[Rfam]
A member of the RNA family "MIR7993 microRNA precursor family" from Anisodus acutangulus, 140 nucleotides long. Gene Ontology terms of the family: miRNA-mediated post-transcriptional gene silencing and RISC complex. Lineage of the source: Eukaryota > Embryophyta > Pentapetalae > lamiids > Anisodus.
Nucleotides: 140
Stems, first nucleotide, its partner, number of pairs: 002137003006133002009130005015124011028111008037102011050089003
Number, partner (000 for none) and nucleotide at each position: 001000a002137u003136a004135a005000a006133u007132u008000a009130a010129c011128c012127a013126c014000u015124u016123a017122a018121a019120a020119u021118a022117u023116g024115u025114c026000a027000c028111c029110u030109c031108c032107u033106u034105u035104a036000a037102u038101u039100a040099u041098a042097c043096g044095c045094a046093u047092u048000a049000g050089c051088c052087u053000c054000a055000a056000u057000a058000a059000g060000c061000c062000a063000u064000a065000a066000a067000a068000c069000u070000c071000a072000g073000g074000c075000a076000u077000g078000u079000u080000u081000c082000a083000a084000u085000u086000g087052a088051g089050g090000a091000u092047g093046a094045u095044g096043u097042g098041u099040a100039u101038a102037a103000c104035u105034a106033a107032a108031g109030g110029a111028g112000a113000u114025g115024a116023c117022a118021u119020a120019u121018u122017u123016u124015a125000u126013g127012u128011g129010g130009u131000c132007a133006a134000c135004u136003u137002a138000a139000c140000u